[Rfam]
RNA sequence: GUUCUUGCGUCUACAGCCGCAACGUUUCACGUUCGGCUGAUGGCUGGUGGCGAACGCCACCGGCCU
Number, nucleotide and partner (000 for none) at each position: 001g000002u000003u000004c000005u000006u000007g000008c000009g000010u000011c000012u000013a000014c039015a038016g037017c036018c035019g000020c000021a000022a000023c031024g030025u000026u000027u000028c000029a000030c024031g023032u000033u000034c000035g018036g017037c016038u015039g014040a000041u000042g065043g064044c063045u062046g061047g060048u059049g058050g057051c056052g000053a000054a000055c000056g051057c050058c049059a048060c047061c046062g045063g044064c043065c042066u000

This 66-nucleotide RNA from Pseudomonas oryzihabitans belongs to the Rfam family "Pseudomonas sRNA P26".
Pairs were carried over by alignment from the consensus structure, which was predicted with RNAalifold.
Rfam's curators write: This small RNA (sRNA) was computationally identified in the genome of the opportunistic pathogen Pseudomonas aeruginosa and its expression verified by northern blot analysis. P26 is conserved across many Gammaproteobacteria species and appears to be consistently located between the DNA directed RNA polymerase (beta subunit) and 50S ribosomal protein L7/L12 genes.
Taxonomically the source falls in Pseudomonas (Bacteria, Pseudomonadota, Gammaproteobacteria, Pseudomonadaceae).
A search with the family's covariance model found it, with a score of 51 bits.